[Rfam]
RNA sequence: CACGGUGUUUAACCGUGAAGGAUGAGAACCGUAAAGGUUCGGGUCAAGCGAAAGCGAGACAACGUUGCCAGCGGCAACGGCCCGAAGGGCGAGGCGUCAGCCGAGUCAUCCUGCACGACCCACCA
Numbered sequence: 001c002a003c004g005g006u007g008u009u010u011a012a013c014c015g016u017g018a019a020g021g022a023u024g025a026g027a028a029c030c031g032u033a034a035a036g037g038u039u040c041g042g043g044u045c046a047a048g049c050g051a052a053a054g055c056g057a058g059a060c061a062a063c064g065u066u067g068c069c070a071g072c073g074g075c076a077a078c079g080g081c082c083c084g085a086a087g088g089g090c091g092a093g094g095c096g097u098c099a100g101c102c103g104a105g106u107c108a109u110c111c112u113g114c115a116c117g118a119c120c121c122a123c124c125a
Stems, first nucleotide, its partner, number of pairs: 015116003019112003023108001030091002038086004045056001063079006